[Rfam]
RNA sequence: GUAUUUCAUCCACUUCACUACGGAUCGUCCGGCACGUACCUGCCGGUGAAGGGAAGUAACA
Number, nucleotide and partner (000 for none) at each position: 001g000002u000003a000004u000005u000006u000007c000008a000009u000010c000011c053012a000013c051014u050015u049016c048017a047018c000019u000020a000021c000022g000023g000024a000025u000026c000027g000028u000029c046030c045031g044032g043033c042034a041035c000036g000037u000038a000039c000040c000041u034042g033043c032044c031045g030046g029047u017048g016049a015050a014051g013052g000053g011054a000055a000056g000057u000058a000059a000060c000061a000
RNA: msiK RNA